[Rfam]
RNA sequence: GGCUCUGUGAUUACUUUGCCUUUAUGGCAGUAUACGCUAUUCCGAAAACAGUAUGGAGAGAAUUACUUUUACACUUAAUGAGAGCC
Numbered sequence: 001g002g003c004u005c006u007g008u009g010a011u012u013a014c015u016u017u018g019c020c021u022u023u024a025u026g027g028c029a030g031u032a033u034a035c036g037c038u039a040u041u042c043c044g045a046a047a048a049c050a051g052u053a054u055g056g057a058g059a060g061a062a063u064u065a066c067u068u069u070u071a072c073a074c075u076u077a078a079u080g081a082g083a084g085c086c
Stems, first nucleotide, its partner, number of pairs: 001086005
The family of this 86-nucleotide RNA sequence from Brassica carinata is "Small nucleolar RNA U54". U54 is a C/D box small nucleolar RNA, which acts as a methylation guide for 18S ribosomal RNA in plants. Its Rfam clan is "U54 clan". Pairs were carried over by alignment from the consensus structure, which was predicted with PFOLD. NCBI's taxonomy places the organism under Eukaryota, Euphyllophyta, Gunneridae, rosids, Brassica. A search with the family's covariance model found it, with a score of 53 bits. For this family Rfam cites "The high diversity of snoRNAs in plants: identification and comparative study of 120 snoRNA genes from Oryza sativa" (Chen et al., Nucleic Acids Res, 2003). By type it is a C/D-box small nucleolar RNA.